RNA: S4-Bacteroidia ribosomal protein leader
RNA sequence: GAUUGCCUUUUAAGCCUUUUCUCUCGGCAAUCGCGGCUG
Numbered sequence: 001g002a003u004u005g006c007c008u009u010u011u012a013a014g015c016c017u018u019u020u021c022u023c024u025c026g027g028c029a030a031u032c033g034c035g036g037c038u039g
Stems, first nucleotide, its partner, number of pairs: 001032007